[Rfam]
RNA sequence: AAGGGCCACUGUAAGCAUGCACGGUGGUUCCGGGUCCUAUUCACGCAUGUUGAUGGAGAGUUUGAACCAUGGCUUUGACCGUUGAAGAAAAAGCUGAAAUCAUCAAGGAAUAUCAGGUAGAAGAA
Numbered sequence: 001a002a003g004g005g006c007c008a009c010u011g012u013a014a015g016c017a018u019g020c021a022c023g024g025u026g027g028u029u030c031c032g033g034g035u036c037c038u039a040u041u042c043a044c045g046c047a048u049g050u051u052g053a054u055g056g057a058g059a060g061u062u063u064g065a066a067c068c069a070u071g072g073c074u075u076u077g078a079c080c081g082u083u084g085a086a087g088a089a090a091a092a093g094c095u096g097a098a099a100u101c102a103u104c105a106a107g108g109a110a111u112a113u114c115a116g117g118u119a120g121a122a123g124a125a
Stems, first nucleotide, its partner, number of pairs: 007026006049079003055076004
RNA: Ribosomal S15 leader